[Rfam]
RNA: BsrC
RNA sequence: GACUUCUAAAACAACAAAAGCCCUACCUCUCUUUUGUCCUUGCGGCUCCAAUGACCGCGCCAGCGUGAAUCAGAUAAAAAUGUCUUUG
Number, nucleotide and partner (000 for none) at each position: 001g000002a000003c000004u000005u000006c000007u000008a000009a000010a000011a000012c000013a000014a000015c000016a000017a000018a000019a000020g000021c000022c000023c000024u000025a000026c000027c000028u000029c000030u000031c000032u000033u000034u068035u067036g066037u000038c000039c063040u062041u059042g058043c057044g056045g055046c000047u053048c000049c000050a000051a000052u000053g047054a000055c045056c044057g043058c042059g041060c000061c000062a040063g039064c000065g000066u036067g035068a034069a000070u000071c000072a000073g000074a000075u000076a000077a000078a000079a000080a000081u000082g000083u000084c000085u000086u000087u000088g000